[Rfam]
RNA sequence: GGCUGGUCUGAAGGUAGUGAGUUACCUCACUUGAUUGUUCAUAGUCAGUUACAGAUUGAAUUCCUUGUUCUACUUCUUUGUCCCCUUCUCACUAUUGCACUUGACUAGUCAAAA
Numbered sequence: 001g002g003c004u005g006g007u008c009u010g011a012a013g014g015u016a017g018u019g020a021g022u023u024a025c026c027u028c029a030c031u032u033g034a035u036u037g038u039u040c041a042u043a044g045u046c047a048g049u050u051a052c053a054g055a056u057u058g059a060a061u062u063c064c065u066u067g068u069u070c071u072a073c074u075u076c077u078u079u080g081u082c083c084c085c086u087u088c089u090c091a092c093u094a095u096u097g098c099a100c101u102u103g104a105c106u107a108g109u110c111a112a113a114a
Base pairs, nucleotide, nucleotide: 001110002109003108004107005106006105007104008103010102011101014098015097016093017092018091019090020089021088043075044074047071048070

This 114-nucleotide RNA sequence from Propithecus coquereli belongs to the Rfam family "Y RNA". It scores 68 bits against the family's covariance model. The source organism's lineage runs through Eukaryota, Euteleostomi, Sarcopterygii, Amniota and Propithecus. It is annotated as a non-coding RNA gene.